[Rfam]
RNA sequence: GGGAUAUGAUGAGUGGUCAUUACUCGCAAGCGUUGCGAGAUGGGUGUCCGCCCCAACGCCUGGUUACGACACUUGGGCACUCCCAUCUUUACCACCUGAUCCC
Numbered sequence: 001g002g003g004a005u006a007u008g009a010u011g012a013g014u015g016g017u018c019a020u021u022a023c024u025c026g027c028a029a030g031c032g033u034u035g036c037g038a039g040a041u042g043g044g045u046g047u048c049c050g051c052c053c054c055a056a057c058g059c060c061u062g063g064u065u066a067c068g069a070c071a072c073u074u075g076g077g078c079a080c081u082c083c084c085a086u087c088u089u090u091a092c093c094a095c096c097u098g099a100u101c102c103c
Stems, first nucleotide, its partner, number of pairs: 001103004014094004023039005042082007060075001062073002
Rfam assigns this 103-nucleotide sequence from Hibiscus trionum to the family "Small nucleolar RNA Z279/snoR105/snoR108". The family has 20 seed sequences and 906 matches in Rfam 15.1. Clan: snoU13 clan. From the family's description: This family includes the plant snoRNAs known as Z279, snoR105 and snoR108. The match comes from Rfam's covariance-model search (86 bits).